STAXI RNA: a 161-nucleotide RNA from Biomphalaria glabrata. Rfam 15.1 lists 130 matches to the family in 68 species. Lineage of the source: Eukaryota > Spiralia > Mollusca > Gastropoda > Biomphalaria. The base pairs follow the family's consensus structure, which is taken from published work.
RNA sequence: GGUCAUUUUCAGAUGACCUGCCCCAUAGAUCACAAGGUCUGAAAGUGGUCAUUUUCAGAUGACCUGCCCCAUAGAUCACAAGGUCUGAAAGUGGUCAUUUUCAGAUGACCUGCCCCAUAGAUCACAAGGUCUGAAAGUGGUCAUUUUCAGAUGACCUGCCC
Numbered sequence: 001g002g003u004c005a006u007u008u009u010c011a012g013a014u015g016a017c018c019u020g021c022c023c024c025a026u027a028g029a030u031c032a033c034a035a036g037g038u039c040u041g042a043a044a045g046u047g048g049u050c051a052u053u054u055u056c057a058g059a060u061g062a063c064c065u066g067c068c069c070c071a072u073a074g075a076u077c078a079c080a081a082g083g084u085c086u087g088a089a090a091g092u093g094g095u096c097a098u099u100u101u102c103a104g105a106u107g108a109c110c111u112g113c114c115c116c117a118u119a120g121a122u123c124a125c126a127a128g129g130u131c132u133g134a135a136a137g138u139g140g141u142c143a144u145u146u147u148c149a150g151a152u153g154a155c156c157u158g159c160c161c
Stems, first nucleotide, its partner, number of pairs: 002017006028050005035065005051060003074096005081111005097106003120141001122139001127157005143152003